[Rfam]
RNA: ALIL pseudoknot
Organism: Amycolatopsis bartoniae
RNA sequence: CGGCUUUUUCGCGCGGGAACUCGACCCGCGACACCGUUGAUCGUCGGGUUCAUCGACGAAUACCGCCAGGUCCGCGGUGUCGGUUCGAUCUGCCGCGCGCUCUGCGAGCACGGGAUCCAGAUCGCGCCG
Numbered sequence: 001c002g003g004c005u006u007u008u009u010c011g012c013g014c015g016g017g018a019a020c021u022c023g024a025c026c027c028g029c030g031a032c033a034c035c036g037u038u039g040a041u042c043g044u045c046g047g048g049u050u051c052a053u054c055g056a057c058g059a060a061u062a063c064c065g066c067c068a069g070g071u072c073c074g075c076g077g078u079g080u081c082g083g084u085u086c087g088a089u090c091u092g093c094c095g096c097g098c099g100c101u102c103u104g105c106g107a108g109c110a111c112g113g114g115a116u117c118c119a120g121a122u123c124g125c126g127c128c129g
Stems, first nucleotide, its partner, number of pairs: 013029005075129005086124002089121004